[Rfam]
RNA sequence: AUAUGCGGCUAGGGGAGCAUUUGGCUGAGACUAUGCAUUUUAUGCAUGAACCCUCAUUACCUGAUCCGGUUAAUACCGGCGUAGGGAAGCACCAAAGUGGACUC
Number, nucleotide and partner (000 for none) at each position: 001a000002u000003a000004u000005g000006c000007g000008g090009c089010u088011a054012g053013g052014g051015g000016a000017g025018c024019a000020u000021u000022u000023g000024g018025c017026u000027g000028a000029g000030a000031c000032u048033a047034u046035g045036c044037a043038u042039u000040u000041u000042a038043u037044g036045c035046a034047u033048g032049a000050a000051c014052c013053c012054u011055c000056a000057u000058u000059a000060c085061c084062u083063g082064a000065u000066c079067c078068g077069g076070u000071u000072a000073a000074u000075a000076c069077c068078g067079g066080c000081g000082u063083a062084g061085g060086g000087a000088a010089g009090c008091a000092c000093c000094a000095a000096a000097g000098u000099g000100g000101a000102c000103u000104c000

TPP riboswitch aptamer (THI element): a 104-nucleotide RNA sequence from Diplocloster agilis.
Taxonomically the source falls in Diplocloster (Bacteria, Bacillati, Lachnospirales, Lachnospiraceae).